[Rfam]
RNA sequence: CUGCUGAAGCUGCCAUGUCUAAGAAGAAAACUUUGGAGAAAAAUUUUCUUCUUAGACAUGGCAACGUCAACAG
Numbered sequence: 001c002u003g004c005u006g007a008a009g010c011u012g013c014c015a016u017g018u019c020u021a022a023g024a025a026g027a028a029a030a031c032u033u034u035g036g037a038g039a040a041a042a043a044u045u046u047u048c049u050u051c052u053u054a055g056a057c058a059u060g061g062c063a064a065c066g067u068c069a070a071c072a073g
Stems, first nucleotide, its partner, number of pairs: 001073003005069003011063020032042003
The record is a 73-nucleotide RNA sequence from Homo sapiens, which matches "mir-4659 microRNA precursor family" in Rfam. Pairs were carried over by alignment from the consensus structure, which was predicted with RNAalifold. Taxonomically the source falls in Homo (Eukaryota, Craniata, Teleostomi, Theria). Rfam links the family to the GO terms RISC complex and miRNA-mediated post-transcriptional gene silencing.